[Rfam]
RNA sequence: CAGUUUGGCUUGCUUUUAUGGUCUUUAUGUCUGUUUCUUACUUUGCUCAACUCUUUAACUUUUGUUAAGAAAUGAUCAUCUGCCAGCUCAAUUUCAAAGAAAGGUCCGACUGUUAAAAGGGAUGAUUUGUUGUCUCUUUGCGUUUUGUUA
Numbered sequence: 001c002a003g004u005u006u007g008g009c010u011u012g013c014u015u016u017u018a019u020g021g022u023c024u025u026u027a028u029g030u031c032u033g034u035u036u037c038u039u040a041c042u043u044u045g046c047u048c049a050a051c052u053c054u055u056u057a058a059c060u061u062u063u064g065u066u067a068a069g070a071a072a073u074g075a076u077c078a079u080c081u082g083c084c085a086g087c088u089c090a091a092u093u094u095c096a097a098a099g100a101a102a103g104g105u106c107c108g109a110c111u112g113u114u115a116a117a118a119g120g121g122a123u124g125a126u127u128u129g130u131u132g133u134c135u136c137u138u139u140g141c142g143u144u145u146u147g148u149u150a
Stems, first nucleotide, its partner, number of pairs: 003149001005147001007144003012141002029110003033106001037103003041099004047075003054069006116139010

Streptococcus sRNA SSRC8: a 150-nucleotide RNA from Streptococcus pyogenes.
Pairs were carried over by alignment from the consensus structure, which was predicted with CMfinder.
Lineage of the source: Bacteria > Bacillota > Bacilli > Streptococcus pyogenes > Streptococcus pyogenes serotype M5.
It is based on computationally predicted coordinates (RNAz).